[Rfam]
RNA sequence: AAUUUAUCAAGAAAGGUGGAGGGAAAGGCCCUAUGAAACCUUAGCAACCCUGUAAUUUUACAGAAGGUGCUAAAUCCAACCCAAUUUAUUGGGAUAGAUAAGUC
Numbered sequence: 001a002a003u004u005u006a007u008c009a010a011g012a013a014a015g016g017u018g019g020a021g022g023g024a025a026a027g028g029c030c031c032u033a034u035g036a037a038a039c040c041u042u043a044g045c046a047a048c049c050c051u052g053u054a055a056u057u058u059u060a061c062a063g064a065a066g067g068u069g070c071u072a073a074a075u076c077c078a079a080c081c082c083a084a085u086u087u088a089u090u091g092g093g094a095u096a097g098a099u100a101a102g103u104c
Stems, first nucleotide, its partner, number of pairs: 002103007013042005021031003027077002043071004048067002050063004075096001080093005
RNA: SAM riboswitch aptamer (S box leader)
Organism: Parvicella tangerina